[Rfam]
RNA sequence: ACAUCCCGUGCGGGAGAGUCCGGACCGGCAGGUUCGGCGCCGAAGGAGCAAAUCCUCCCCGGAACCUCUCAGGCACCAGGACCGUACGGGACAG
Numbered sequence: 001a002c003a004u005c006c007c008g009u010g011c012g013g014g015a016g017a018g019u020c021c022g023g024a025c026c027g028g029c030a031g032g033u034u035c036g037g038c039g040c041c042g043a044a045g046g047a048g049c050a051a052a053u054c055c056u057c058c059c060c061g062g063a064a065c066c067u068c069u070c071a072g073g074c075a076c077c078a079g080g081a082c083c084g085u086a087c088g089g090g091a092c093a094g
Stems, first nucleotide, its partner, number of pairs: 006089008020037004039074003042070002046068003053061001

Source information:
Rfam assigns this 94-nucleotide RNA sequence from Kutzneria kofuensis to the family "Glycine riboswitch aptamer". NCBI's taxonomy places the organism under Bacteria, Actinomycetota, Pseudonocardiales, Pseudonocardiaceae, Kutzneria. It scores 67 bits against the family's covariance model.